[Rfam]
RNA: Bacterial RNase P class A
Organism: Megasphaera sp. UPII 135-E
RNA sequence: UGAGUAUGAAAGACAAUCGCUGGUGGAAUACAUCAGAGGAAAGUCCGAGCUCCAUAGGGCAGGAUGCCGGAUAACGCCCGGCGAAGGUGACUUUAGGGAUAGUGCCACAGAAAUGUGUACCGCCACGUAUGUGGUAAGGGUGGAACGGUGCGGUAAGAGCGCACCAGCGGUAUGGUAACAUACCGGCUAGGUAAACCCCAUCUGGAGCAAGACCGAAUAGGGAAGAGAUGAAGCGGCCCGCUGAUCUUCCGGGUUGUGUCGCUGGAUCAUGUCAGUAAUGGCAUGACUAGAUAGAUGAUUGUCGCUGCAGUAGCAGAACAAAACUCGGCUUAUUGAUUACUCAUACA
Numbered sequence: 001u002g003a004g005u006a007u008g009a010a011a012g013a014c015a016a017u018c019g020c021u022g023g024u025g026g027a028a029u030a031c032a033u034c035a036g037a038g039g040a041a042a043g044u045c046c047g048a049g050c051u052c053c054a055u056a057g058g059g060c061a062g063g064a065u066g067c068c069g070g071a072u073a074a075c076g077c078c079c080g081g082c083g084a085a086g087g088u089g090a091c092u093u094u095a096g097g098g099a100u101a102g103u104g105c106c107a108c109a110g111a112a113a114u115g116u117g118u119a120c121c122g123c124c125a126c127g128u129a130u131g132u133g134g135u136a137a138g139g140g141u142g143g144a145a146c147g148g149u150g151c152g153g154u155a156a157g158a159g160c161g162c163a164c165c166a167g168c169g170g171u172a173u174g175g176u177a178a179c180a181u182a183c184c185g186g187c188u189a190g191g192u193a194a195a196c197c198c199c200a201u202c203u204g205g206a207g208c209a210a211g212a213c214c215g216a217a218u219a220g221g222g223a224a225g226a227g228a229u230g231a232a233g234c235g236g237c238c239c240g241c242u243g244a245u246c247u248u249c250c251g252g253g254u255u256g257u258g259u260c261g262c263u264g265g266a267u268c269a270u271g272u273c274a275g276u277a278a279u280g281g282c283a284u285g286a287c288u289a290g291a292u293a294g295a296u297g298a299u300u301g302u303c304g305c306u307g308c309a310g311u312a313g314c315a316g317a318a319c320a321a322a323a324c325u326c327g328g329c330u331u332a333u334u335g336a337u338u339a340c341u342c343a344u345a346c347a
Base pairs, nucleotide, nucleotide: 001343002342003341004340005339006338010334011333012303013302014301015300016299017298018297020036021035022034023033024032025031041331042330043329045328046327047326048325049324050207051206052205053204057239058238059237060236062203063202064201065200066199067081068080069079070078082096083094084093085092086091097198098197102196103195104192105191106190120139121138122135123134124133125132126131147165148164149163150162151161152160167187168185169184170183171182172181173180174179211260212259213258214256221250222249223248224247225246226245232242233241234240267286268285269284270283271282272281273280274279